[Rfam]
This 108-nucleotide RNA from Puniceispirillum marinum belongs to the Rfam family "rpsB sRNA". The family's consensus secondary structure is taken from published work.

RNA sequence: CACACAUGAGGGCGGUCCGGCAUGGCAAAAUCCAUGCUUCAGGCCAUCCGGUGAAGGCAUAUGCCUUUCAUUUCCCUCAUGGAGGUUUAACCGGAGAACAGGAGUAAA
Numbered sequence: 001c002a003c004a005c006a007u008g009a010g011g012g013c014g015g016u017c018c019g020g021c022a023u024g025g026c027a028a029a030a031u032c033c034a035u036g037c038u039u040c041a042g043g044c045c046a047u048c049c050g051g052u053g054a055a056g057g058c059a060u061a062u063g064c065c066u067u068u069c070a071u072u073u074c075c076c077u078c079a080u081g082g083a084g085g086u087u088u089a090a091c092c093g094g095a096g097a098a099c100a101g102g103a104g105u106a107a108a
Stems, first nucleotide, its partner, number of pairs: 001084001003082001005081006014045002024033001053069004
For this family Rfam cites "Identification of candidate structured RNAs in the marine organism 'Candidatus Pelagibacter ubique'" (Meyer et al., BMC Genomics, 2009). It scores 43 bits against the family's covariance model. NCBI's taxonomy places the organism under Bacteria, Pseudomonadati, Puniceispirillales (SeqCode), Puniceispirillaceae (SeqCode), Puniceispirillum (SeqCode).